[Rfam]
RNA sequence: UAUGGCACAUCUAGGCUGUGUCUAGACUGGCAAGUUUUUCCGCAAAUUUGCGGAAAAACUUGCCAGUCUAGACACAGCCUAGAUGUGCCAUA
Numbered sequence: 001u002a003u004g005g006c007a008c009a010u011c012u013a014g015g016c017u018g019u020g021u022c023u024a025g026a027c028u029g030g031c032a033a034g035u036u037u038u039u040c041c042g043c044a045a046a047u048u049u050g051c052g053g054a055a056a057a058a059c060u061u062g063c064c065a066g067u068c069u070a071g072a073c074a075c076a077g078c079c080u081a082g083a084u085g086u087g088c089c090a091u092a
Stems, first nucleotide, its partner, number of pairs: 004089011016077002019074008031062005037056005
RNA: MIR5200 microRNA precursor family
Organism: Pelodiscus sinensis